[Rfam]
RNA sequence: GGGGUAUUAGCUCAGUUGGUUAGAGCGUCACGUUGACAUCGUGAAGGUCAGCUGUUCAAGUCAGCUAUAUCCCA
Number, nucleotide and partner (000 for none) at each position: 001g073002g072003g071004g070005u069006a068007u067008u000009a000010g026011c025012u024013c023014a000015g000016u000017u000018g000019g000020u000021u000022a000023g013024a012025g011026c010027g000028u044029c043030a042031c041032g040033u000034u000035g000036a000037c000038a000039u000040c032041g031042u030043g029044a028045a000046g000047g000048u000049c000050a066051g065052c064053u063054g062055u000056u000057c000058a000059a000060g000061u000062c054063a053064g052065c051066u050067a007068u006069a005070u004071c003072c002073c001074a000
Annotation
The family of this 74-nucleotide RNA sequence from Chlamydia trachomatis is "tRNA". Taxonomically the source falls in Chlamydia trachomatis (Bacteria, Pseudomonadati, Chlamydiota, Chlamydiales). A search with the family's covariance model found it, with a score of 67 bits.